This 89-nucleotide RNA sequence from Ziziphus jujuba belongs to the Rfam family "Plastid-psbM 3UTR RNA".
By type it is a cis-regulatory element.
From the family's description: Plastid psbM is a non-coding RNA (ncRNA) recognised in plastids.
Taxonomically the source falls in Ziziphus jujuba (Eukaryota, Magnoliopsida, Rhamnaceae, Paliureae).
The family has 237 seed sequences and 627 matches in Rfam 15.1.
The literature on the family includes a 2023 paper in Plant Commun by Richter et al., "Retrograde signaling in plants: A critical review focusing on the GUN pathway and beyond".
[Rfam]
RNA sequence: GAAACGAUAGUACGGUAGAAAAAGAGAUUCAUAUUUUUCUUUCUACCAUACUAUCUAGAAUUGUCAUUGUACUGUAUAAAGAUUAUUGU
Numbered sequence: 001g002a003a004a005c006g007a008u009a010g011u012a013c014g015g016u017a018g019a020a021a022a023a024g025a026g027a028u029u030c031a032u033a034u035u036u037u038u039c040u041u042u043c044u045a046c047c048a049u050a051c052u053a054u055c056u057a058g059a060a061u062u063g064u065c066a067u068u069g070u071a072c073u074g075u076a077u078a079a080a081g082a083u084u085a086u087u088g089u
Base pairs, nucleotide, nucleotide: 006055007054008053009052010051011050012049014047015046016045017044018043019042020041021040023038024037025036026035027034028033